The family of this 120-nucleotide RNA from Falsochrobactrum ovis is "Rhizobiales sRNA Atu_C8".
RNA sequence: GAACAGAACAGCUCUUAUUCUUGUGGUACGUACGCGCAUGGGCAGGAUGGUGUAACCAUCCGGCGAAAGCUCCCAUGCGCGAAAGACAGGCUCCCUCGGGGGCCUUUUUUGUUAUCAUAG
Numbered sequence: 001g002a003a004c005a006g007a008a009c010a011g012c013u014c015u016u017a018u019u020c021u022u023g024u025g026g027u028a029c030g031u032a033c034g035c036g037c038a039u040g041g042g043c044a045g046g047a048u049g050g051u052g053u054a055a056c057c058a059u060c061c062g063g064c065g066a067a068a069g070c071u072c073c074c075a076u077g078c079g080c081g082a083a084a085g086a087c088a089g090g091c092u093c094c095c096u097c098g099g100g101g102g103c104c105u106u107u108u109u110u111g112u113u114a115u116c117a118u119a120g
Base pairs, nucleotide, nucleotide: 009026030116033081034080035079036078037077038076039075040074041073042072045061046060047059048058049057050056063070064069086106088105089104090103091102092101093100094099
The organism belongs to Falsochrobactrum, within Bacteria.